[Rfam]
RNA: Small nucleolar RNA snoR138
Organism: Musa balbisiana
RNA sequence: AUAGCCUCUUGAAUAACCGGAUGCAGGAUGAAACAGCCAUCUGCAUACGGUUCAGACGGAGGCGCAAAGCGACAUGAAUCCUUUUUGAGGGAAAGGAGCUCAUUUCUCUCAGUAGUUCCUUUCUUAGAUGGCUUCUGAUAUAU
Numbered sequence: 001a002u003a004g005c006c007u008c009u010u011g012a013a014u015a016a017c018c019g020g021a022u023g024c025a026g027g028a029u030g031a032a033a034c035a036g037c038c039a040u041c042u043g044c045a046u047a048c049g050g051u052u053c054a055g056a057c058g059g060a061g062g063c064g065c066a067a068a069g070c071g072a073c074a075u076g077a078a079u080c081c082u083u084u085u086u087g088a089g090g091g092a093a094a095g096g097a098g099c100u101c102a103u104u105u106c107u108c109u110c111a112g113u114a115g116u117u118c119c120u121u122u123c124u125u126a127g128a129u130g131g132c133u134u135c136u137g138a139u140a141u142a143u
Base pairs, nucleotide, nucleotide: 004063005062006061007060009059015052016051017050018049019048021046022045024043025042026041076135077134078133080131083112084111087108088107089106091105093104094103096101117128118127